[Rfam]
RNA sequence: CGAUCCCAUGCGGGAGAGUCCUGAGUCGUUCGCGACCAGGGCGCCGAAGGAGCAAAUCCUCCCCGGAAUCUCUCAGGCACACGUACCGCAUGGAUGAG
Numbered sequence: 001c002g003a004u005c006c007c008a009u010g011c012g013g014g015a016g017a018g019u020c021c022u023g024a025g026u027c028g029u030u031c032g033c034g035a036c037c038a039g040g041g042c043g044c045c046g047a048a049g050g051a052g053c054a055a056a057u058c059c060u061c062c063c064c065g066g067a068a069u070c071u072c073u074c075a076g077g078c079a080c081a082c083g084u085a086c087c088g089c090a091u092g093g094a095u096g097a098g
Stems, first nucleotide, its partner, number of pairs: 006093008020041003043078003046074002050072003057065001
The family of this 98-nucleotide sequence is "Glycine riboswitch aptamer". The pairing is the family consensus, mapped onto this sequence. The match comes from Rfam's covariance-model search (64 bits).